Shown here is a 100-nucleotide RNA sequence from Methanolobus halotolerans, a member of the family "Pyrrolysine insertion sequence 1". It scores 103 bits against the family's covariance model. The source organism's lineage runs through Archaea, Methanobacteriati, Methanosarcinales, Methanosarcinaceae and Methanolobus. The family's consensus secondary structure was predicted with WAR.

[Rfam]
RNA sequence: UAGGGACCUGAGACUUCCCUGUCAGCUCAGGGAAAUAUCGCUUCUGACUGUGCCGGUGGCCAGAUCAGCAGCGACAGCCACGAGGUCUCCCAGCUCAAUG
Numbered sequence: 001u002a003g004g005g006a007c008c009u010g011a012g013a014c015u016u017c018c019c020u021g022u023c024a025g026c027u028c029a030g031g032g033a034a035a036u037a038u039c040g041c042u043u044c045u046g047a048c049u050g051u052g053c054c055g056g057u058g059g060c061c062a063g064a065u066c067a068g069c070a071g072c073g074a075c076a077g078c079c080a081c082g083a084g085g086u087c088u089c090c091c092a093g094c095u096c097a098a099u100g
Stems, first nucleotide, its partner, number of pairs: 010089008040060003044056003